[Rfam]
RNA sequence: GUAGGAUACGGGGACAUGUGUCCAAUUACUUUGGGAGGCAAAAUGGUGGGGACUCUUUGCGCCAUUGCCGGUGUUUUGACCAUCGCCCUUCCCGUCCCUGUUAUUGUCUCCAAC
Numbered sequence: 001g002u003a004g005g006a007u008a009c010g011g012g013g014a015c016a017u018g019u020g021u022c023c024a025a026u027u028a029c030u031u032u033g034g035g036a037g038g039c040a041a042a043a044u045g046g047u048g049g050g051g052a053c054u055c056u057u058u059g060c061g062c063c064a065u066u067g068c069c070g071g072u073g074u075u076u077u078g079a080c081c082a083u084c085g086c087c088c089u090u091c092c093c094g095u096c097c098c099u100g101u102u103a104u105u106g107u108c109u110c111c112a113a114c
Base pairs, nucleotide, nucleotide: 001114002113004111005110008107009106010105011104013102014101015100016099018097020095021094037077038076040074049063050062
Potassium channel RNA editing signal: a 114-nucleotide sequence from Esox lucius. The source organism's lineage runs through Eukaryota, Eumetazoa, Protacanthopterygii, Esocidae and Esox. It scores 104 bits against the family's covariance model. This family represents a group of sequences related to the human potassium channel Kv1.1 hairpin element which directs the efficient modification of an adenosine to inosine by an adenosine deaminase acting on RNA (ADAR). The ADAR modification causes an isoleucine/valine recoding event which lies in the ion-conducting pore of the potassium channel. It is thought that this editing event targets the process of fast inactivation and allows a more rapid recovery from inactivation at negative potentials.